[Rfam]
The record is a 100-nucleotide RNA sequence from Marinococcus luteus, which matches "Purine riboswitch aptamer" in Rfam. The source organism's lineage runs through Bacteria, Bacillati, Bacilli, Caryophanales and Marinococcus. The base pairs follow the family's consensus structure, which is taken from published work. The match comes from Rfam's covariance-model search (74 bits).

RNA sequence: AAAUAAAUAAUAAUUAGUCACUGUAUAACCCCGUUAAUAUGGUACGGGGGUCUCUACCAGGAACCGUAAAAUCCUGAUUACAAAGAAGGUGCCCCGGCAU
Numbered sequence: 001a002a003a004u005a006a007a008u009a010a011u012a013a014u015u016a017g018u019c020a021c022u023g024u025a026u027a028a029c030c031c032c033g034u035u036a037a038u039a040u041g042g043u044a045c046g047g048g049g050g051u052c053u054c055u056a057c058c059a060g061g062a063a064c065c066g067u068a069a070a071a072u073c074c075u076g077a078u079u080a081c082a083a084a085g086a087a088g089g090u091g092c093c094c095c096g097g098c099a100u
Base pairs, nucleotide, nucleotide: 018086019085022082023081024080025079029049030048031047032046033045034044058076059075060074061073062072